[Rfam]
RNA: Small nucleolar RNA U109
Organism: Microcebus murinus
RNA sequence: UGGUAUGCGAUGGCGUGCUGCUGUCUCUUUAAAGAGCGUGGAUUUAUCUAGACCAUGUGACAUGAGUGAAAUGAGAAGUUUCCGGGGCUGCCAACCUCUUGGUUAGGUUUGCUGUAGUAUAUUUCUGCUACAAAA
Numbered sequence: 001u002g003g004u005a006u007g008c009g010a011u012g013g014c015g016u017g018c019u020g021c022u023g024u025c026u027c028u029u030u031a032a033a034g035a036g037c038g039u040g041g042a043u044u045u046a047u048c049u050a051g052a053c054c055a056u057g058u059g060a061c062a063u064g065a066g067u068g069a070a071a072u073g074a075g076a077a078g079u080u081u082c083c084g085g086g087g088c089u090g091c092c093a094a095c096c097u098c099u100u101g102g103u104u105a106g107g108u109u110u111g112c113u114g115u116a117g118u119a120u121a122u123u124u125c126u127g128c129u130a131c132a133a134a135a
Stems, first nucleotide, its partner, number of pairs: 001055003014040006075128001077126002087115002091111001093109005
Dot-bracket structure: (((..........((((((...............))))))............)))...................(.((........((..(.(((((.......))))).)..)).........)).).......